[Rfam]
Overview: The record is a 107-nucleotide RNA from Methylobacterium sp. Leaf93, which matches "TPP riboswitch aptamer (THI element)" in Rfam. Vitamin B(1) in its active form thiamin pyrophosphate (TPP) is an essential coenzyme that is synthesised by coupling of pyrimidine and thiazole moieties in bacteria. The source organism's lineage runs through Bacteria, Pseudomonadota, Alphaproteobacteria, Hyphomicrobiales and Methylobacterium. A search with the family's covariance model found it, with a score of 73 bits.
RNA sequence: AAUCGUUCCGAGGGGGGCCCCGUUCAGGGGGCUGAGAUAGGGCCGCAGCCCUGACCCUUGAACCUGAUCCGGCUCAUACCGGCGGAGGGACGGGAACUACGCUUGGG
Numbered sequence: 001a002a003u004c005g006u007u008c009c010g011a012g013g014g015g016g017g018c019c020c021c022g023u024u025c026a027g028g029g030g031g032c033u034g035a036g037a038u039a040g041g042g043c044c045g046c047a048g049c050c051c052u053g054a055c056c057c058u059u060g061a062a063c064c065u066g067a068u069c070c071g072g073c074u075c076a077u078a079c080c081g082g083c084g085g086a087g088g089g090a091c092g093g094g095a096a097c098u099a100c101g102c103u104u105g106g107g
Stems, first nucleotide, its partner, number of pairs: 006095005011058004017032005039052005063088003069082004